[Rfam]
RNA: Small nucleolar RNA R64/Z200 family
RNA sequence: CUUCUGCAGUGAUGAAUUAUGUAAAGAGUAAUACACAUGUCAGACUUCAGAGAUUUUCAUCGAUGAGAACACACACUCAACACUCUGAGCAGAAG
Dot-bracket structure: (((((((............................................(((....)))...........................)))))))
Numbered sequence: 001c002u003u004c005u006g007c008a009g010u011g012a013u014g015a016a017u018u019a020u021g022u023a024a025a026g027a028g029u030a031a032u033a034c035a036c037a038u039g040u041c042a043g044a045c046u047u048c049a050g051a052g053a054u055u056u057u058c059a060u061c062g063a064u065g066a067g068a069a070c071a072c073a074c075a076c077u078c079a080a081c082a083c084u085c086u087g088a089g090c091a092g093a094a095g
Stems, first nucleotide, its partner, number of pairs: 001095007052061003